The family of this 69-nucleotide RNA from Medicago truncatula is "MIR2629 microRNA precursor family".
The match comes from Rfam's covariance-model search (62 bits).
Rfam links the family to the GO terms RISC complex and miRNA-mediated post-transcriptional gene silencing.
Lineage of the source: Eukaryota > Gunneridae > rosids > Trifolieae > Medicago.
RNA sequence: UUCCGAAGUUUUCCUCGGUAGUUAACUGCAGCCGGUUCCAUAAUUCGGCAAUUAACUGUCGAAAGGCAU
Numbered sequence: 001u002u003c004c005g006a007a008g009u010u011u012u013c014c015u016c017g018g019u020a021g022u023u024a025a026c027u028g029c030a031g032c033c034g035g036u037u038c039c040a041u042a043a044u045u046c047g048g049c050a051a052u053u054a055a056c057u058g059u060c061g062a063a064a065g066g067c068a069u
Base pairs, nucleotide, nucleotide: 012065015062016061017060018059019058020057021056022055023054024053025052027050028049029048